The record is an 88-nucleotide RNA sequence from Zizania palustris, which matches "Small nucleolar RNA Z266" in Rfam. The family's RNA type in Rfam is C/D-box small nucleolar RNA. The source organism's lineage runs through Eukaryota, Streptophyta, Euphyllophyta, Spermatophyta and Zizania. The family has 11 seed sequences and 719 matches in Rfam 15.1. Its family is annotated with nucleolus and RNA processing in the Gene Ontology. The match comes from Rfam's covariance-model search (89 bits).
[Rfam]
RNA sequence: UAUUGGCCGGAAUGAUGAAUCAAUUAGAUGUACGAAGUCACCUUAUGAGCUAGAAUUUUGAGGCAUACUAUCGUCUGACCUGCCAAUA
Numbered sequence: 001u002a003u004u005g006g007c008c009g010g011a012a013u014g015a016u017g018a019a020u021c022a023a024u025u026a027g028a029u030g031u032a033c034g035a036a037g038u039c040a041c042c043u044u045a046u047g048a049g050c051u052a053g054a055a056u057u058u059u060g061a062g063g064c065a066u067a068c069u070a071u072c073g074u075c076u077g078a079c080c081u082g083c084c085a086a087u088a
Base pairs, nucleotide, nucleotide: 001088002087003086004085005084006083007082009080010079